Shown here is a 35-nucleotide RNA sequence from Bacteroidales bacterium Barb4, a member of the family "DUF805b RNA". A search with the family's covariance model found it, with a score of 45 bits.
[Rfam]
RNA sequence: ACGGCGGAUCCGAAAAGCCGAAAACAGAGUAGGGA
Numbered sequence: 001a002c003g004g005c006g007g008a009u010c011c012g013a014a015a016a017g018c019c020g021a022a023a024a025c026a027g028a029g030u031a032g033g034g035a
Base pairs, nucleotide, nucleotide: 002020003019004018005017010033011032

The family's consensus secondary structure is taken from published work.